[Rfam]
RNA: 5' ureB small RNA
Organism: Pseudomonas sp. M47T1
RNA sequence: CUUCUUCGAUCUGCUGCGGGCAGAUGAAGUGGAUGUGGGUGUCGAUACCGCCAGCGGUGAGGAUCAUGCCUUCACCGGCGAUCACCUCGGUGCUGGCGCCGAUGGCGAUGGUCACGUCCGGCUGGAUGUCCGGGUUGCCGGCUUUGCCGAUAGCGGCGAUACGGCCGUCCUUCAGGCCCACGUCGGCCUUGACGAUGCCCCAGUGGUCGAUGAUGAGGGCGUUGGUGAUCAGGGUGUCGACCACGUCGGCGGCCAGCAACUGGCCCUGGCCCAUGCCGUCGCGGAU
Numbered sequence: 001c002u003u004c005u006u007c008g009a010u011c012u013g014c015u016g017c018g019g020g021c022a023g024a025u026g027a028a029g030u031g032g033a034u035g036u037g038g039g040u041g042u043c044g045a046u047a048c049c050g051c052c053a054g055c056g057g058u059g060a061g062g063a064u065c066a067u068g069c070c071u072u073c074a075c076c077g078g079c080g081a082u083c084a085c086c087u088c089g090g091u092g093c094u095g096g097c098g099c100c101g102a103u104g105g106c107g108a109u110g111g112u113c114a115c116g117u118c119c120g121g122c123u124g125g126a127u128g129u130c131c132g133g134g135u136u137g138c139c140g141g142c143u144u145u146g147c148c149g150a151u152a153g154c155g156g157c158g159a160u161a162c163g164g165c166c167g168u169c170c171u172u173c174a175g176g177c178c179c180a181c182g183u184c185g186g187c188c189u190u191g192a193c194g195a196u197g198c199c200c201c202a203g204u205g206g207u208c209g210a211u212g213a214u215g216a217g218g219g220c221g222u223u224g225g226u227g228a229u230c231a232g233g234g235u236g237u238c239g240a241c242c243a244c245g246u247c248g249g250c251g252g253c254c255a256g257c258a259a260c261u262g263g264c265c266c267u268g269g270c271c272c273a274u275g276c277c278g279u280c281g282c283g284g285a286u
Stems, first nucleotide, its partner, number of pairs: 002285002005283001007281003012158006018076002022072002030053003034050002037048001039046002057069003077148002081144001085140001090138003094132001095130003099125002102123001105119001107117001164270004172263004186220005200209001223255003230248001234246003